[Rfam]
RNA: MIR7504 microRNA precursor family
Organism: Gossypium harknessii
RNA sequence: AAUAAGAAAAUGACAAAUUAGAUUUAUCCUCCUGAUAUUCAGCUUUUUCUCUUGAAAAAAAUCUAAAUCCAACUAAAAAUACUAAAAAUAAAAAGAAAAAAUCUGAUUUGUCAUUCUCUUAUU
Numbered sequence: 001a002a003u004a005a006g007a008a009a010a011u012g013a014c015a016a017a018u019u020a021g022a023u024u025u026a027u028c029c030u031c032c033u034g035a036u037a038u039u040c041a042g043c044u045u046u047u048u049c050u051c052u053u054g055a056a057a058a059a060a061a062u063c064u065a066a067a068u069c070c071a072a073c074u075a076a077a078a079a080u081a082c083u084a085a086a087a088a089u090a091a092a093a094a095g096a097a098a099a100a101a102u103c104u105g106a107u108u109u110g111u112c113a114u115u116c117u118c119u120u121a122u123u
Stems, first nucleotide, its partner, number of pairs: 001123007009115017027097001029095002033091001035089002038086002041083002045079004